This 82-nucleotide RNA sequence from Tupaia belangeri belongs to the Rfam family "small Cajal body-specific RNA 18". Pairs were carried over by alignment from the consensus structure, which was predicted with PFOLD. scaRNAs are a specific class of small nuclear RNAs which localise to the Cajal bodies and guide the modification of RNA polymerase II transcribed spliceosomal RNAs U1, U2, U4, U5 and U12. This C/D box domain U91 (also known as U4-8) was identified by Darzacq and is predicted to guide the 2'O-ribose methylation of U4 snRNA C8. The match comes from Rfam's covariance-model search (69 bits).

[Rfam]
RNA sequence: GAGCCCUGGCUGAUGACGGGACCACUAUGCAGUCUGAGUUCUGGGAACCACCUGAUGGAGCGUGUCCUGAGAACUGAGGCUG
Numbered sequence: 001g002a003g004c005c006c007u008g009g010c011u012g013a014u015g016a017c018g019g020g021a022c023c024a025c026u027a028u029g030c031a032g033u034c035u036g037a038g039u040u041c042u043g044g045g046a047a048c049c050a051c052c053u054g055a056u057g058g059a060g061c062g063u064g065u066c067c068u069g070a071g072a073a074c075u076g077a078g079g080c081u082g
Stems, first nucleotide, its partner, number of pairs: 002081004042050003
The organism belongs to Tupaia belangeri, within Eukaryota. Rfam classes the family as a small Cajal body RNA.